[Rfam]
RNA: raiA RNA
RNA sequence: ACGAAGACGGGUCUGUGGUUGAAAGUCGAGGCCAGUCGCAGGCAAAACGAUCCACGUAAACCGGGCAAAGUCCCGGCGAGCAUGGUGCGGCUUAGAAGUAAGUCCGGCCAGCACGGCGAUGCUGAGAGGGUCAGUAGUGGGGCGCGAAGGCGUAUGAGCGAGAGCUCCGGCCGGCGAGUGUGGGGGCAAAGACCAGGUCAGCCGGACUUUGU
Numbered sequence: 001a002c003g004a005a006g007a008c009g010g011g012u013c014u015g016u017g018g019u020u021g022a023a024a025g026u027c028g029a030g031g032c033c034a035g036u037c038g039c040a041g042g043c044a045a046a047a048c049g050a051u052c053c054a055c056g057u058a059a060a061c062c063g064g065g066c067a068a069a070g071u072c073c074c075g076g077c078g079a080g081c082a083u084g085g086u087g088c089g090g091c092u093u094a095g096a097a098g099u100a101a102g103u104c105c106g107g108c109c110a111g112c113a114c115g116g117c118g119a120u121g122c123u124g125a126g127a128g129g130g131u132c133a134g135u136a137g138u139g140g141g142g143c144g145c146g147a148a149g150g151c152g153u154a155u156g157a158g159c160g161a162g163a164g165c166u167c168c169g170g171c172c173g174g175c176g177a178g179u180g181u182g183g184g185g186g187c188a189a190a191g192a193c194c195a196g197g198u199c200a201g202c203c204g205g206a207c208u209u210u211g212u
Stems, first nucleotide, its partner, number of pairs: 001212006008204003013201003016195005029181001031179001032042001034092007051085002061075001063073002083188001104174005109124005128167004137159002143152003